[Rfam]
RNA sequence: UGCAACUUAAUAAGAGACCUUCAUAUAUCCUCGAUAAUACGGUUCGAGAGUCUCUACCGGAGCACCGAUAAUGCUCUGACUAUGAAGGCAGAAGCCGUGUGA
Numbered sequence: 001u002g003c004a005a006c007u008u009a010a011u012a013a014g015a016g017a018c019c020u021u022c023a024u025a026u027a028u029c030c031u032c033g034a035u036a037a038u039a040c041g042g043u044u045c046g047a048g049a050g051u052c053u054c055u056a057c058c059g060g061a062g063c064a065c066c067g068a069u070a071a072u073g074c075u076c077u078g079a080c081u082a083u084g085a086a087g088g089c090a091g092a093a094g095c096c097g098u099g100u101g102a
Stems, first nucleotide, its partner, number of pairs: 018088008030048005058078007
A member of the RNA family "Purine riboswitch aptamer" from Pontibacillus marinus, 102 nucleotides long. The organism belongs to Pontibacillus marinus, within Bacteria. The family's consensus secondary structure is taken from published work.